[Rfam]
RNA: tRNA
Organism: Actinocatenispora rupis
RNA sequence: GGCCCCGUCGGCUAUGGGUUAGGCCGCCAGGUUUUCACCCUGGCAGAGCGGGUUCGAGUCCCGUCGGGGCUG
Numbered sequence: 001g002g003c004c005c006c007g008u009c010g011g012c013u014a015u016g017g018g019u020u021a022g023g024c025c026g027c028c029a030g031g032u033u034u035u036c037a038c039c040c041u042g043g044c045a046g047a048g049c050g051g052g053u054u055c056g057a058g059u060c061c062c063g064u065c066g067g068g069g070c071u072g
Stems, first nucleotide, its partner, number of pairs: 001071007010025004027043005048064005